The record is a 49-nucleotide RNA sequence, which matches "eL15-Euryarchaeota ribosomal protein leader" in Rfam. For this family Rfam cites "Discovery of 20 novel ribosomal leader candidates in bacteria and archaea" (Eckert and Weinberg, BMC Microbiol, 2020). Pairs were carried over by alignment from the consensus structure, which is taken from published work. Rfam's curators put it in the seed alignment.
Nucleotides: 049
Base pairs, nucleotide, nucleotide: 001015002014003013004012005011017045018044019043025039026038027037028036029035
Number, partner (000 for none) and nucleotide at each position: 001015c002014g003013g004012a005011c006000a007000a008000c009000a010000u011005g012004u013003c014002c015001g016000u017045u018044g019043g020000g021000a022000u023000g024000u025039g026038g027037c028036c029035c030000c031000a032000c033000g034000u035029g036028g037027g038026c039025u040000g041000a042000a043019c044018c045017g046000u047000a048000a049000g